RNA sequence: CCGGUGGCUCAAGGUGGCCUAGCAGCGUGUUGUCUUUAAGAUUCGCACCCUGUCAGACCAUACUUGUUCUAACG
Number, nucleotide and partner (000 for none) at each position: 001c000002c000003g000004g000005u071006g070007g069008c000009u000010c066011a065012a064013g063014g061015u060016g059017g058018c000019c056020u055021a000022g053023c052024a051025g050026c000027g048028u047029g046030u045031u000032g000033u000034c000035u000036u000037u000038a000039a000040g000041a000042u000043u000044c000045g030046c029047a028048c027049c000050c025051u024052g023053u022054c000055a020056g019057a000058c017059c016060a015061u014062a000063c013064u012065u011066g010067u000068u000069c007070u006071a005072a000073c000074g000
RNA: mir-2755 microRNA precursor family